[Rfam]
RNA: Pseudomonas sRNA P26
RNA sequence: AGCCUUAGGGUUGCAGUCUGAAUAAAAUCAGGCUGAUGGCUGGUGACUUUUGGGUCACCAGCCU
Dot-bracket structure: .............(((((............)))))..((((((((((......)))))))))).